[Rfam]
RNA sequence: AAUUUUUCAUAGUUCUUUUAAAAUUUUUCUAACAGGAUUUCUGCUUGGUCAAAAAUCCCAA
Numbered sequence: 001a002a003u004u005u006u007u008c009a010u011a012g013u014u015c016u017u018u019u020a021a022a023a024u025u026u027u028u029c030u031a032a033c034a035g036g037a038u039u040u041c042u043g044c045u046u047g048g049u050c051a052a053a054a055a056u057c058c059c060a061a
Stems, first nucleotide, its partner, number of pairs: 035058006042051002
Dot-bracket structure: ..................................((((((.((......)).))))))...
The record is a 61-nucleotide RNA sequence from Rattus norvegicus, which matches "U7 small nuclear RNA" in Rfam. The organism belongs to Rattus, within Eukaryota. A reference for the family is Spycher et al. (1994), "3' end processing of mouse histone pre-mRNA: evidence for additional base-pairing between U7 snRNA and pre-mRNA", Nucleic Acids Res.